Source information: Shown here is a 57-nucleotide RNA from Solanum tuberosum, a member of the family "MIR1886 microRNA precursor family". NCBI's taxonomy places the organism under Eukaryota, Viridiplantae, Mesangiospermae, lamiids, Solanum. Its family is annotated with miRNA-mediated post-transcriptional gene silencing and RISC complex in the Gene Ontology. The base pairs follow the family's consensus structure, which was predicted with RNAalifold. Rfam 15.1 lists 1,053 matches to the family in 6 species.

RNA sequence: UGAGAUGGAAUCAGCGUUUGGAUUGGACAUGCGAUUUUACGCUGAUUCCAUCUCAUG
Numbered sequence: 001u002g003a004g005a006u007g008g009a010a011u012c013a014g015c016g017u018u019u020g021g022a023u024u025g026g027a028c029a030u031g032c033g034a035u036u037u038u039a040c041g042c043u044g045a046u047u048c049c050a051u052c053u054c055a056u057g
Base pairs, nucleotide, nucleotide: 001055002054003053004052005051006050007049008048009047010046011045012044013043014042015041016040017039018034019033020032